[Rfam]
RNA: Small nucleolar RNA U54
Organism: Protea cynaroides
RNA sequence: GGCUCGAUGAUUACAUUGGCAAUAUACGCUAUUCUAAGUAUUUUUUUGUAGGUUGAAAAUUUUUCGAUAAUGAGAGCU
Numbered sequence: 001g002g003c004u005c006g007a008u009g010a011u012u013a014c015a016u017u018g019g020c021a022a023u024a025u026a027c028g029c030u031a032u033u034c035u036a037a038g039u040a041u042u043u044u045u046u047u048g049u050a051g052g053u054u055g056a057a058a059a060u061u062u063u064u065c066g067a068u069a070a071u072g073a074g075a076g077c078u
Base pairs, nucleotide, nucleotide: 001078002077003076004075005074